[Rfam]
RNA sequence: UCCUAGCUAUGUUGCUUGGAGGUUUUUCCAAGAAAAUCUGUGAAGACAGCAUCAUGGACUACACUCUUGUCUAUAAAUUACAGCUUAUUUGAUUUGCUGUAUGAAAUUCAACAGAAAUAGAUGGUAGCUAUAAAAGAUGUGUGGGAAGCUCUUUUGCGAAUGCUAAAUCUGUGGUGUAACUAAAUUAUAGAUAAGCUAUUCUCA
Numbered sequence: 001u002c003c004u005a006g007c008u009a010u011g012u013u014g015c016u017u018g019g020a021g022g023u024u025u026u027u028c029c030a031a032g033a034a035a036a037u038c039u040g041u042g043a044a045g046a047c048a049g050c051a052u053c054a055u056g057g058a059c060u061a062c063a064c065u066c067u068u069g070u071c072u073a074u075a076a077a078u079u080a081c082a083g084c085u086u087a088u089u090u091g092a093u094u095u096g097c098u099g100u101a102u103g104a105a106a107u108u109c110a111a112c113a114g115a116a117a118u119a120g121a122u123g124g125u126a127g128c129u130a131u132a133a134a135a136g137a138u139g140u141g142u143g144g145g146a147a148g149c150u151c152u153u154u155u156g157c158g159a160a161u162g163c164u165a166a167a168u169c170u171g172u173g174g175u176g177u178a179a180c181u182a183a184a185u186u187a188u189a190g191a192u193a194a195g196c197u198a199u200u201c202u203c204a
Base pairs, nucleotide, nucleotide: 001058002057003056006055009052010051011050012049013048014047066195067194068193069192070191071190072189073188074187078182083177084176111172112171113170114169115168118165119164120163127157128156
Shown here is a 204-nucleotide sequence, a member of the family "RT-16 RNA". The family's RNA type in Rfam is small RNA. The base pairs follow the family's consensus structure, which is taken from published work. It is one of the family's seed sequences.